RNA sequence: AUUGCGGGGAAUGUUGUCUGGCUCGAGGAAUCAAAACUAUUUUCUUACUUACUUUGUAUAGAUAUAUAUAUUAUGAAUAUAGAUCUACAGUGUUGGAUUAUGUUUUUGGUGUCGUCGGACCAGGCUUCAUUCCCCACAAU
Numbered sequence: 001a002u003u004g005c006g007g008g009g010a011a012u013g014u015u016g017u018c019u020g021g022c023u024c025g026a027g028g029a030a031u032c033a034a035a036a037c038u039a040u041u042u043u044c045u046u047a048c049u050u051a052c053u054u055u056g057u058a059u060a061g062a063u064a065u066a067u068a069u070a071u072u073a074u075g076a077a078u079a080u081a082g083a084u085c086u087a088c089a090g091u092g093u094u095g096g097a098u099u100a101u102g103u104u105u106u107u108g109g110u111g112u113c114g115u116c117g118g119a120c121c122a123g124g125c126u127u128c129a130u131u132c133c134c135c136a137c138a139a140u
Base pairs, nucleotide, nucleotide: 001140002139003138004137006135007134008133009132010131011130012129013128016125017124018123019122020121021120024117025116026115
Shown here is a 140-nucleotide sequence from Capsicum baccatum, a member of the family "mir-166 microRNA precursor family".
This family represents the plant microRNA (miRNA) precursor mir-166.
A search with the family's covariance model found it, with a score of 85 bits.
Its family is annotated with miRNA-mediated post-transcriptional gene silencing and RISC complex in the Gene Ontology.
The family's consensus secondary structure was predicted with PFOLD.